[Rfam]
RNA: FMN riboswitch aptamer (RFN element)
Organism: Firmicutes bacterium CAG:646
RNA sequence: AAAAUUCUUCGGGGCGGGGCGUAAUUCCCCACCGGCGGUAAAGUCCGCGACCCAUGGCAGCAUGGCUGAACCGGUGAGAUUCCGGUACCGACAGUAUAGUCUGGAUGAGAGAAGAAGAGA
Numbered sequence: 001a002a003a004a005u006u007c008u009u010c011g012g013g014g015c016g017g018g019g020c021g022u023a024a025u026u027c028c029c030c031a032c033c034g035g036c037g038g039u040a041a042a043g044u045c046c047g048c049g050a051c052c053c054a055u056g057g058c059a060g061c062a063u064g065g066c067u068g069a070a071c072c073g074g075u076g077a078g079a080u081u082c083c084g085g086u087a088c089c090g091a092c093a094g095u096a097u098a099g100u101c102u103g104g105a106u107g108a109g110a111g112a113a114g115a116a117g118a119g120a
Base pairs, nucleotide, nucleotide: 005116006115007114008113009112010111017029018028019027031100032099033090034089035048036047037046038045043088044087052065053064070086071085072084073083074082092103093102094101